RNA sequence: CAAACGCGGGUCUGAACGGCUUGAUUCUCUUUAGAAUCAAUUGACUUGCGCUUGCGAUGUUGUGUUUGCAAUCUCGAUUUUCGAGUUAGGUAGAUUCUACCACCACACUUUGGCUAGUUAUCCCCUAGUUGAUGUGUGUACUUCCCGUAUUUUGACCUGUCUGUCAAAUUUUCUUACACCGCCUAAAUGGCGGUGUUUUUUUGU
Numbered sequence: 001c002a003a004a005c006g007c008g009g010g011u012c013u014g015a016a017c018g019g020c021u022u023g024a025u026u027c028u029c030u031u032u033a034g035a036a037u038c039a040a041u042u043g044a045c046u047u048g049c050g051c052u053u054g055c056g057a058u059g060u061u062g063u064g065u066u067u068g069c070a071a072u073c074u075c076g077a078u079u080u081u082c083g084a085g086u087u088a089g090g091u092a093g094a095u096u097c098u099a100c101c102a103c104c105a106c107a108c109u110u111u112g113g114c115u116a117g118u119u120a121u122c123c124c125c126u127a128g129u130u131g132a133u134g135u136g137u138g139u140a141c142u143u144c145c146c147g148u149a150u151u152u153u154g155a156c157c158u159g160u161c162u163g164u165c166a167a168a169u170u171u172u173c174u175u176a177c178a179c180c181g182c183c184u185a186a187a188u189g190g191c192g193g194u195g196u197u198u199u200u201u202u203g204u
Stems, first nucleotide, its partner, number of pairs: 009046004015042002021040008073085004088126003093121001149170001151168003176196007